Source information:
This 92-nucleotide RNA from Sporosarcina sp. Te-1 belongs to the Rfam family "Glycine riboswitch aptamer". This family represents the bacterial glycine riboswitch.
RNA sequence: AUGAUUGAGCGGGGAGAGCACGCAUUAGGCGUCGCCGAAGGAGCAAGUAACGAGGUUAUGAAUCUCUCAGGUAACAAGACCCGUUCAUGACG
Numbered sequence: 001a002u003g004a005u006u007g008a009g010c011g012g013g014g015a016g017a018g019c020a021c022g023c024a025u026u027a028g029g030c031g032u033c034g035c036c037g038a039a040g041g042a043g044c045a046a047g048u049a050a051c052g053a054g055g056u057u058a059u060g061a062a063u064c065u066c067u068c069a070g071g072u073a074a075c076a077a078g079a080c081c082c083g084u085u086c087a088u089g090a091c092g
Stems, first nucleotide, its partner, number of pairs: 006087008020032004034072003037068002041066003047059004